[Rfam]
RNA sequence: GGCAGAUGAUGUUUGUUCUCACGAUGGUCUUCGGAUGCCUCCAGGGUACUGCCGACAAAGCCACAUGGCUCAGCUGAUGCCAGGGG
Numbered sequence: 001g002g003c004a005g006a007u008g009a010u011g012u013u014u015g016u017u018c019u020c021a022c023g024a025u026g027g028u029c030u031u032c033g034g035a036u037g038c039c040u041c042c043a044g045g046g047u048a049c050u051g052c053c054g055a056c057a058a059a060g061c062c063a064c065a066u067g068g069c070u071c072a073g074c075u076g077a078u079g080c081c082a083g084g085g086g
Base pairs, nucleotide, nucleotide: 001081002080003079004078
Dot-bracket structure: ((((.........................................................................)))).....
Record summary:
Shown here is an 86-nucleotide RNA from Sarcophilus harrisii, a member of the family "Small nucleolar RNA SNORD35". Its Rfam clan is "SNORD35 clan". Rfam describes the family as follows. U35 is a C/D box snoRNA located in intron 6 of ribosomal protein L13A and intron 3 of ribosomal protein S11 in humans and at homologous positions in mouse and chicken ribosomal protein genes. U35 guides the methylation of 2'-O-ribose sites in 28S rRNA. It is annotated as a C/D-box small nucleolar RNA. The base pairs follow the family's consensus structure, which was predicted with PFOLD. The match comes from Rfam's covariance-model search (90 bits).